[Rfam]
RNA sequence: GCCGGUCCUCGGUAGUGGCCGCCGGGAGUCCCCACAGCGGACGGCCCGGGGGCUUCGAUCGAAGACCGGC
Numbered sequence: 001g002c003c004g005g006u007c008c009u010c011g012g013u014a015g016u017g018g019c020c021g022c023c024g025g026g027a028g029u030c031c032c033c034a035c036a037g038c039g040g041a042c043g044g045c046c047c048g049g050g051g052g053c054u055u056c057g058a059u060c061g062a063a064g065a066c067c068g069g070c
Stems, first nucleotide, its partner, number of pairs: 001070007009062005017054004022049005029041002
Actino-pnp RNA: a 70-nucleotide RNA sequence from Kitasatospora sp. MMS16-BH015. Pairs were carried over by alignment from the consensus structure, which is taken from published work. Lineage of the source: Bacteria > Bacillati > Actinomycetota > Streptomycetaceae > Kitasatospora. It scores 66 bits against the family's covariance model. Rfam classes the family as a cis-regulatory element.